[Rfam]
RNA sequence: CUCCCCGUCACCCGGGGAGUAGCCCGCCGCGCGCAUGUCGUGCGGAGAUCGCGUCAACAUACUUGGUCGAGAGAUCAUGGUGCGAUCAGGAUCGGUUCCGGCCGAUCC
Numbered sequence: 001c002u003c004c005c006c007g008u009c010a011c012c013c014g015g016g017g018a019g020u021a022g023c024c025c026g027c028c029g030c031g032c033g034c035a036u037g038u039c040g041u042g043c044g045g046a047g048a049u050c051g052c053g054u055c056a057a058c059a060u061a062c063u064u065g066g067u068c069g070a071g072a073g074a075u076c077a078u079g080g081u082g083c084g085a086u087c088a089g090g091a092u093c094g095g096u097u098c099c100g101g102c103c104g105a106u107c108c
Stems, first nucleotide, its partner, number of pairs: 027045007047087010064077005089108008
RNA: Manganese Mn2+ riboswitch aptamer (yybP-ykoY)
Organism: Sphingomonas cavernae